RNA: algC RNA
RNA sequence: GAAAAAAUGGCCAUUUUGGUCAGGGCCAACUGUUGCCUGAAGAAGGGUAA
Numbered sequence: 001g002a003a004a005a006a007a008u009g010g011c012c013a014u015u016u017u018g019g020u021c022a023g024g025g026c027c028a029a030c031u032g033u034u035g036c037c038u039g040a041a042g043a044a045g046g047g048u049a050a
Base pairs, nucleotide, nucleotide: 009021010020011019012018013017